[Rfam]
RNA sequence: AAGCCAGCCAGUGAGUCUGCUUACCUAAAUGUAUAUAUUCAGAGCUUUAGAUAAAGCUGGAAAUAAUAGUGCUAUGAUAUGAGCAUUAAGGAUAAUCAAAGUUAUAAAGGUCCCUGAGAAUGAUUACAACA
Dot-bracket structure: ...((((........((((....................)))).............))))..........(.((........((.((.(.(((.......))).).)).)).........)).).......
RNA: Small nucleolar RNA SNORA33